[Rfam]
The record is a 125-nucleotide RNA sequence, which matches "EGFOA RNA" in Rfam. By type it is a small RNA. The sequence is in the family's curated seed alignment.

RNA sequence: AGCCCACCAGAAGUGCGUAAGCGACCGUCCUAGUCCACGAGAGUGGAGGAUAAUAUUCCGAUUAGGUGUAUUUGGUUAAACACCUUACUCUGUAAAGCUAGACCUGGGGGAGUUUGAGGGAUAGU
Numbered sequence: 001a002g003c004c005c006a007c008c009a010g011a012a013g014u015g016c017g018u019a020a021g022c023g024a025c026c027g028u029c030c031u032a033g034u035c036c037a038c039g040a041g042a043g044u045g046g047a048g049g050a051u052a053a054u055a056u057u058c059c060g061a062u063u064a065g066g067u068g069u070a071u072u073u074g075g076u077u078a079a080a081c082a083c084c085u086u087a088c089u090c091u092g093u094a095a096a097g098c099u100a101g102a103c104c105u106g107g108g109g110g111a112g113u114u115u116g117a118g119g120g121a122u123a124g125u
Stems, first nucleotide, its partner, number of pairs: 007107004027103002030101004034047005052125001054123006064085006087113005